[Rfam]
RNA: Small nucleolar RNA SNORD42
RNA sequence: GGGCAGAUGAUGCAUGAUAUAAUUUCUGAUGAAUAAUGACAGACUCAAAGGAACCACUGAUGCCA
Numbered sequence: 001g002g003g004c005a006g007a008u009g010a011u012g013c014a015u016g017a018u019a020u021a022a023u024u025u026c027u028g029a030u031g032a033a034u035a036a037u038g039a040c041a042g043a044c045u046c047a048a049a050g051g052a053a054c055c056a057c058u059g060a061u062g063c064c065a
Stems, first nucleotide, its partner, number of pairs: 002064004